[Rfam]
RNA sequence: GCAGACUCACUCUGCACCCGGCUGCAGCCUCAGACGGGUGCUUUUUCUGUCUGCCAGAGAAAUAUUCCGGGUGCUGCAGCUGCCUGACUUGUCAAGGGCGAUGCAGUUGCCUGGGGACAUGGGG
Numbered sequence: 001g002c003a004g005a006c007u008c009a010c011u012c013u014g015c016a017c018c019c020g021g022c023u024g025c026a027g028c029c030u031c032a033g034a035c036g037g038g039u040g041c042u043u044u045u046u047c048u049g050u051c052u053g054c055c056a057g058a059g060a061a062a063u064a065u066u067c068c069g070g071g072u073g074c075u076g077c078a079g080c081u082g083c084c085u086g087a088c089u090u091g092u093c094a095a096g097g098g099c100g101a102u103g104c105a106g107u108u109g110c111c112u113g114g115g116g117a118c119a120u121g122g123g124g
Stems, first nucleotide, its partner, number of pairs: 001054006014041007022033003066115007073107006081100005
This 124-nucleotide RNA sequence from Prolemur simus belongs to the Rfam family "Small nucleolar RNA SNORA77". The match comes from Rfam's covariance-model search (134 bits). ACA63 (SNORA77) is a member of the H/ACA class of snoRNAs that guide the sites of modification of uridines to pseudouridines. This snoRNA was identified by computational screening and its expression in mouse experimentally verified by Northern blot and primer extension analysis. Gene Ontology terms of the family: nucleolus and RNA processing. For this family Rfam cites "A computational screen for mammalian pseudouridylation guide H/ACA RNAs" (Schattner et al., RNA, 2006). Rfam classes the family as an H/ACA-box small nucleolar RNA. Pairs were carried over by alignment from the consensus structure, which was predicted with RNAalifold. The family has 19 seed sequences and 843 matches in Rfam 15.1.